[Rfam]
RNA sequence: GUUGCUUCAUAUGGUGAACUCUCUUUUCUAUAAUAAAGUGAGAGAUGUUCAAGUUUCCGAAGCAUAAAUUAACUUGCAGUAUUAAACAGCGUGGUGCAUUUUCAAUUGCAUCUUGCUACCUGUCUCCUGCUACAUUC
Numbered sequence: 001g002u003u004g005c006u007u008c009a010u011a012u013g014g015u016g017a018a019c020u021c022u023c024u025u026u027u028c029u030a031u032a033a034u035a036a037a038g039u040g041a042g043a044g045a046u047g048u049u050c051a052a053g054u055u056u057c058c059g060a061a062g063c064a065u066a067a068a069u070u071a072a073c074u075u076g077c078a079g080u081a082u083u084a085a086a087c088a089g090c091g092u093g094g095u096g097c098a099u100u101u102u103c104a105a106u107u108g109c110a111u112c113u114u115g116c117u118a119c120c121u122g123u124c125u126c127c128u129g130c131u132a133c134a135u136u137c
Stems, first nucleotide, its partner, number of pairs: 003064006015051005020045005076130004081125001088117003093112004